[Rfam]
Shown here is a 115-nucleotide RNA sequence from Rhizobium sp. Leaf371, a member of the family "Alphaproteobacterial ar15". The literature on the family includes a 2007 paper in Mol Microbiol by del Val et al., "Identification of differentially expressed small non-coding RNAs in the legume endosymbiont Sinorhizobium meliloti by comparative genomics". The organism belongs to Rhizobium, within Bacteria.

RNA sequence: AGCUGAUGCACCGGUGAUCUAAUCCCUCCCAGUAUCACCGCACCAGCUGUUCCCCUCUGGAGGUUUUAUGACCUUCACAUCUCAAGGACCUCGGCUUCGCCGCAGGUCCUUUUUU
Numbered sequence: 001a002g003c004u005g006a007u008g009c010a011c012c013g014g015u016g017a018u019c020u021a022a023u024c025c026c027u028c029c030c031a032g033u034a035u036c037a038c039c040g041c042a043c044c045a046g047c048u049g050u051u052c053c054c055c056u057c058u059g060g061a062g063g064u065u066u067u068a069u070g071a072c073c074u075u076c077a078c079a080u081c082u083c084a085a086g087g088a089c090c091u092c093g094g095c096u097u098c099g100c101c102g103c104a105g106g107u108c109c110u111u112u113u114u115u
Base pairs, nucleotide, nucleotide: 001048002047003046004045005044007042008041009040014038015037016036017035058077059076060075061074062073063072064071085110086109087108088107089106090105092102093101094100